[Rfam]
RNA sequence: CAGUGUUACAGCUCUUUUAGAAUUUGCCUAGCAGGCUUUCUGGGUUCUUGCCGGAAAGUCAAA
Number, nucleotide and partner (000 for none) at each position: 001c000002a000003g000004u000005g000006u000007u000008a000009c000010a000011g000012c000013u000014c000015u000016u000017u000018u000019a000020g000021a000022a000023u000024u000025u000026g000027c000028c000029u000030a000031g000032c000033a000034g060035g059036c058037u057038u056039u055040c054041u053042g052043g051044g000045u000046u000047c000048u000049u000050g000051c043052c042053g041054g040055a039056a038057a037058g036059u035060c034061a000062a000063a000
Shown here is a 63-nucleotide sequence from Sapajus apella, a member of the family "U7 small nuclear RNA". The literature on the family includes a 2007 paper in Genomics Proteomics Bioinformatics by Marz et al., "U7 snRNAs: a computational survey". Lineage of the source: Eukaryota > Deuterostomia > Chordata > Mammalia > Sapajus. It scores 61 bits against the family's covariance model.